[Rfam]
RNA sequence: AAAAAAGCUUAGAACAGACCAAGUAAUUAUAUAGUGAUGUUUUUAGAGAGUCCUUGGGUGGUGGAAAAGGAUAGCACAUAUAUAACGAACACAGCUGGGAGCUAUUUUGCCGAAAAAUGAGUAAUCAUUUAGUAGGUUCAAUCGGUAUGCUCGUUAUCGCAAAAGUCUCUUAGAGACUUUCUGAGGUAGUUGCUGUAAAGCAAUUGCGAACAGAGGUGGAAACACGUGAAUUAAAACGCUCGUCCUCUUG
Numbered sequence: 001a002a003a004a005a006a007g008c009u010u011a012g013a014a015c016a017g018a019c020c021a022a023g024u025a026a027u028u029a030u031a032u033a034g035u036g037a038u039g040u041u042u043u044u045a046g047a048g049a050g051u052c053c054u055u056g057g058g059u060g061g062u063g064g065a066a067a068a069g070g071a072u073a074g075c076a077c078a079u080a081u082a083u084a085a086c087g088a089a090c091a092c093a094g095c096u097g098g099g100a101g102c103u104a105u106u107u108u109g110c111c112g113a114a115a116a117a118u119g120a121g122u123a124a125u126c127a128u129u130u131a132g133u134a135g136g137u138u139c140a141a142u143c144g145g146u147a148u149g150c151u152c153g154u155u156a157u158c159g160c161a162a163a164a165g166u167c168u169c170u171u172a173g174a175g176a177c178u179u180u181c182u183g184a185g186g187u188a189g190u191u192g193c194u195g196u197a198a199a200g201c202a203a204u205u206g207c208g209a210a211c212a213g214a215g216g217u218g219g220a221a222a223c224a225c226g227u228g229a230a231u232u233a234a235a236a237c238g239c240u241c242g243u244c245c246u247c248u249u250g
Stems, first nucleotide, its partner, number of pairs: 007102002015097003027085005039075003050072006105141002109137003143153003186207007213247004224243003228239001
RNA: T-box leader
Organism: Vagococcus salmoninarum